[Rfam]
RNA: tRNA
Organism: Phytophthora rubi
RNA sequence: GACAGCUUGGCCGAGUGGUUAAGGCGAUAGACUAGAAAUCUAUUGGGGUAACCCGCGCGAGUUCAAAUCUCACAGCUGUCG
Dot-bracket structure: (((((((..(((..........))).(((((.......))))).............(.(((.......))).)))))))).